[Rfam]
RNA: FMN riboswitch aptamer (RFN element)
RNA sequence: UAUGUUCUUCAGGGCAGGGUGCAAUUCCCUACCGGUGGUACAGCCCACGAGCCGAAAGGCAUGACAUGGUGUGAUUCCAUGGCCGACAGUAUAGUCUGGAUGAGAGAAGAAGUAU
Numbered sequence: 001u002a003u004g005u006u007c008u009u010c011a012g013g014g015c016a017g018g019g020u021g022c023a024a025u026u027c028c029c030u031a032c033c034g035g036u037g038g039u040a041c042a043g044c045c046c047a048c049g050a051g052c053c054g055a056a057a058g059g060c061a062u063g064a065c066a067u068g069g070u071g072u073g074a075u076u077c078c079a080u081g082g083c084c085g086a087c088a089g090u091a092u093a094g095u096c097u098g099g100a101u102g103a104g105a106g107a108a109g110a111a112g113u114a115u
Stems, first nucleotide, its partner, number of pairs: 005111006017029003031095002033085002035048004043083002053059001065081005087098003